Record summary: The family of this 45-nucleotide sequence from Taxus chinensis is "S4-Bacteroidia ribosomal protein leader". The organism belongs to Taxus, within Eukaryota. The literature on the family includes a 2020 paper in BMC Microbiol by Eckert and Weinberg, "Discovery of 20 novel ribosomal leader candidates in bacteria and archaea". The family's consensus secondary structure is taken from published work. Its Rfam clan is "Ribosomal Protein S4 Leader clan".

RNA sequence: GAUUACUCCCUCAAAAGGACAUCUUCCUCUCAGUAAUCGCUGCUG
Numbered sequence: 001g002a003u004u005a006c007u008c009c010c011u012c013a014a015a016a017g018g019a020c021a022u023c024u025u026c027c028u029c030u031c032a033g034u035a036a037u038c039g040c041u042g043c044u045g
Stems, first nucleotide, its partner, number of pairs: 001038007